A member of the RNA family "Glycine riboswitch aptamer" from Paenibacillus solanacearum, 103 nucleotides long. This family represents the bacterial glycine riboswitch. It scores 64 bits against the family's covariance model. The organism belongs to Paenibacillus, within Bacteria. Rfam links the family to the GO term glycine biosynthetic process.

RNA sequence: AUGAUGGUAAAGGGAGAGAUUACCGGGACCGCCCGUUCCGGUGACGCCGAAGGAGUAAGCCCGGACGGGUGAAUCUCUCAGGCAAAAGGACCUCUGCCGGACG
Numbered sequence: 001a002u003g004a005u006g007g008u009a010a011a012g013g014g015a016g017a018g019a020u021u022a023c024c025g026g027g028a029c030c031g032c033c034c035g036u037u038c039c040g041g042u043g044a045c046g047c048c049g050a051a052g053g054a055g056u057a058a059g060c061c062c063g064g065a066c067g068g069g070u071g072a073a074u075c076u077c078u079c080a081g082g083c084a085a086a087a088g089g090a091c092c093u094c095u096g097c098c099g100g101a102c103g
Base pairs, nucleotide, nucleotide: 006098007097008096009095011093012092013091020044021043022042023041024040025039026038027037046083047082048081049079050078053077054076055075059070060069